[Rfam]
Shown here is a 79-nucleotide RNA sequence, a member of the family "Plastid-psbM 3UTR RNA".

RNA sequence: CGAUAGUAUGGUAGAAAAAAAUAUGAAUCUUUCUACCAUACUAUCUAUUAUUGUAAUGUAUAAAGAUACAAGCUUAAUA
Numbered sequence: 001c002g003a004u005a006g007u008a009u010g011g012u013a014g015a016a017a018a019a020a021a022u023a024u025g026a027a028u029c030u031u032u033c034u035a036c037c038a039u040a041c042u043a044u045c046u047a048u049u050a051u052u053g054u055a056a057u058g059u060a061u062a063a064a065g066a067u068a069c070a071a072g073c074u075u076a077a078u079a
Stems, first nucleotide, its partner, number of pairs: 002045016019028001

The literature on the family includes a 2023 paper in Plant Commun by Richter et al., "Retrograde signaling in plants: A critical review focusing on the GUN pathway and beyond".
The base pairs follow the family's consensus structure, which was predicted with LocARNA.
Rfam 15.1 lists 627 matches to the family in 337 species.
Rfam describes the family as follows. Plastid psbM is a non-coding RNA (ncRNA) recognised in plastids. It was found in the three prime untranslated region (3UTR) of psbM gene, its 3UTR location suggests a role in transcript maturation.